[Rfam]
Rfam assigns this 76-nucleotide RNA from Crocodylus porosus to the family "Mammalian CPEB3 ribozyme". It scores 37 bits against the family's covariance model. Taxonomically the source falls in Crocodylus (Eukaryota, Sarcopterygii, Sauropsida, Longirostres). Rfam links the family to the GO term RNA nuclease activity. Rfam's curators write: The mammalian CPEB3 ribozyme is a self cleaving RNA located in the second intron of the CPEB3 gene which belongs to a family of genes regulating messenger RNA polyadenylation.
RNA sequence: UUAGCCUAAAAUAAGGCCAUAGCAGAAUUGCUUGUGGUGUGACCUUUCAGAUUCAAAUGAAUCUAUGAAUUCUGCU
Numbered sequence: 001u002u003a004g005c006c007u008a009a010a011a012u013a014a015g016g017c018c019a020u021a022g023c024a025g026a027a028u029u030g031c032u033u034g035u036g037g038u039g040u041g042a043c044c045u046u047u048c049a050g051a052u053u054c055a056a057a058u059g060a061a062u063c064u065a066u067g068a069a070u071u072c073u074g075c076u
Stems, first nucleotide, its partner, number of pairs: 013046004018041001021076007029039002049064006